This 57-nucleotide sequence from Cucurbita maxima belongs to the Rfam family "Plastid-ccsA-ndhD-1 3UTR RNA".

RNA sequence: AAGACAUCUAGAACUCUUUGAAUCACUAUAUUACUUGAUUCAAAUGGUUCUCACAAA
Numbered sequence: 001a002a003g004a005c006a007u008c009u010a011g012a013a014c015u016c017u018u019u020g021a022a023u024c025a026c027u028a029u030a031u032u033a034c035u036u037g038a039u040u041c042a043a044a045u046g047g048u049u050c051u052c053a054c055a056a057a
Stems, first nucleotide, its partner, number of pairs: 010051006017044009
By type it is a cis-regulatory element. About the family: Plastid-ccsA-ndhD-1 is a non-coding RNA (ncRNA) recognised in plastids. It was found in the three prime untranslated region (3UTR) of ccsA and ndhD genes, its 3UTR location suggests a role in transcript maturation. Rfam 15.1 lists 1,322 matches to the family in 557 species.